RNA sequence: GAAAUCCGGUAUAUCCAAGGCCUAACCAGCCAGAUAUUAGCGAGUCUUGGGAUGGCAUCAGUAAUGGUAUCUGACAAGCGUAGACAGCAAGCAAGCAGGGUCGAUAAAAGCGAUUGAGCCUCGAAAAGUUAGUUAUUCCAGCAGGCUGACGUCUUAACUGGUGCGGAAGGCAACAUCAUACAGGUCGUAACGGUGAGAACUGUAUGGCGCUGCGGGGUCAGAGAGCC
Numbered sequence: 001g002a003a004a005u006c007c008g009g010u011a012u013a014u015c016c017a018a019g020g021c022c023u024a025a026c027c028a029g030c031c032a033g034a035u036a037u038u039a040g041c042g043a044g045u046c047u048u049g050g051g052a053u054g055g056c057a058u059c060a061g062u063a064a065u066g067g068u069a070u071c072u073g074a075c076a077a078g079c080g081u082a083g084a085c086a087g088c089a090a091g092c093a094a095g096c097a098g099g100g101u102c103g104a105u106a107a108a109a110g111c112g113a114u115u116g117a118g119c120c121u122c123g124a125a126a127a128g129u130u131a132g133u134u135a136u137u138c139c140a141g142c143a144g145g146c147u148g149a150c151g152u153c154u155u156a157a158c159u160g161g162u163g164c165g166g167a168a169g170g171c172a173a174c175a176u177c178a179u180a181c182a183g184g185u186c187g188u189a190a191c192g193g194u195g196a197g198a199a200c201u202g203u204a205u206g207g208c209g210c211u212g213c214g215g216g217g218u219c220a221g222a223g224a225g226c227c
Stems, first nucleotide, its partner, number of pairs: 012036004019031003023196001025194002038090001040088002044085004048080002050075001054071002057068004115221001116219001118218006139212004144208001145171003150165003176207008185198002